This 78-nucleotide sequence from Miscanthus lutarioriparius belongs to the Rfam family "Small nucleolar RNA R160". By type it is a C/D-box small nucleolar RNA. snoR160 is a C/D box small nucleolar RNA, which acts as a methylation guide for 25S ribosomal RNA in plants. snoR160 has been alternatively named snoZ270 in rice. The base pairs follow the family's consensus structure. Rfam links the family to the GO terms RNA processing and nucleolus. A search with the family's covariance model found it, with a score of 55 bits.
RNA sequence: AAUAUCGAGGUCAUAUGAUCUGAAGUAGUAUCUGAUGUUGAUACGUCCAUUCAUGGUCUUCAGUGUUCUUUGAAUAUU
Numbered sequence: 001a002a003u004a005u006c007g008a009g010g011u012c013a014u015a016u017g018a019u020c021u022g023a024a025g026u027a028g029u030a031u032c033u034g035a036u037g038u039u040g041a042u043a044c045g046u047c048c049a050u051u052c053a054u055g056g057u058c059u060u061c062a063g064u065g066u067u068c069u070u071u072g073a074a075u076a077u078u
Base pairs, nucleotide, nucleotide: 001078002077003076004075005074